[Rfam]
RNA sequence: AGGUAAUGUCUCCUUACCUAUAUCAAUGGAGGCACUCGGUCAUGCUGUGGGGGGAAUCCUCCCUUAGACGCCAGUCGUCGCGGGUAUGAUGUGAGGAUGGGUUAAAUGCCCG
Numbered sequence: 001a002g003g004u005a006a007u008g009u010c011u012c013c014u015u016a017c018c019u020a021u022a023u024c025a026a027u028g029g030a031g032g033c034a035c036u037c038g039g040u041c042a043u044g045c046u047g048u049g050g051g052g053g054g055a056a057u058c059c060u061c062c063c064u065u066a067g068a069c070g071c072c073a074g075u076c077g078u079c080g081c082g083g084g085u086a087u088g089a090u091g092u093g094a095g096g097a098u099g100g101g102u103u104a105a106a107u108g109c110c111c112g
Base pairs, nucleotide, nucleotide: 001019002018003017004016007034008033009032010031011030012029013028035095036094037093038092039090040089041088042087043086044085045084046083049064050063051062052061053060054059067079068078069077070076098112099111100110101109102108